[Rfam]
RNA sequence: CCAGUAGCCCCGAAGUGCUGUCGGACCCCCGACCUGGCAGCACCUCGGGGCUCUUCC
Numbered sequence: 001c002c003a004g005u006a007g008c009c010c011c012g013a014a015g016u017g018c019u020g021u022c023g024g025a026c027c028c029c030c031g032a033c034c035u036g037g038c039a040g041c042a043c044c045u046c047g048g049g050g051c052u053c054u055u056c057c
Base pairs, nucleotide, nucleotide: 003055004054007051008050009049010048011047012046013045015043016042017041018040019039020038021037022036
Overview: The record is a 57-nucleotide RNA from Actinosynnema mirum, which matches "F6 TB sRNA" in Rfam. Rfam's curators put it in the seed alignment. Pairs were carried over by alignment from the consensus structure, which is taken from published work. Rfam classes the family as a small RNA. A reference for the family is Arnvig and Young (2009), "Identification of small RNAs in Mycobacterium tuberculosis", Mol Microbiol.